[Rfam]
RNA: tRNA
RNA sequence: GGUUUUGUAGUGUAAUAAACAUAUUAGAUUGCAAAUCUACAGAUGCGGUUAUAAUUGUCGCCAAAACUU
Numbered sequence: 001g002g003u004u005u006u007g008u009a010g011u012g013u014a015a016u017a018a019a020c021a022u023a024u025u026a027g028a029u030u031g032c033a034a035a036u037c038u039a040c041a042g043a044u045g046c047g048g049u050u051a052u053a054a055u056u057g058u059c060g061c062c063a064a065a066a067c068u069u
Stems, first nucleotide, its partner, number of pairs: 001068007010022004025039004045061005